The record is a 344-nucleotide sequence from Erysipelotrichaceae bacterium RD49, which matches "Bacterial RNase P class B" in Rfam.
It is annotated as a ribozyme.
Pairs were carried over by alignment from the consensus structure, which is taken from published work.

RNA sequence: AAAUGGAUGCAGCUGCUGGCGCGAUUGCGUUAGAGGAAAGUCCAUGCUCGCACAGUCUGCGAUGACUGUAGUGUUUGUGCCAGUCUAAUCAAUAAGGCUGGGCUGCCUGUAGGUAGACGGCUGCGUCGAAGCCUAAAGAGAAAUCCAUGGCUAAGACCUUUAAAAGUGCCACAGAGACGAAGCUCUUUUGGAAACGAAAGAGGUGGAACGGGUAAACCCCGCAAGCGAGAAACCCAAAUUUGGUAGGGGAACUGUCUAAGGCGAACUUGAAGCCAAGGACAGAUGCGAAAGCAUAGAUAAAUUGCUGCACUUACGCAAGUAAGAACAGAACAUGGCUUAUGAAA
Dot-bracket structure: ...(..(((((((..((((((......))))))....[[[.[[[[[(((((((((((......)))))).....(((((((((((..........))))))((((((....))))).)((..(.(....((((....((....))...))))....).)......(((((............((((((((....))))))))........)))..))))))))))))))...(((..........)))...((((((...................))))))((((....)))).........))))))(((((....))))).......]]]]]]]].)...)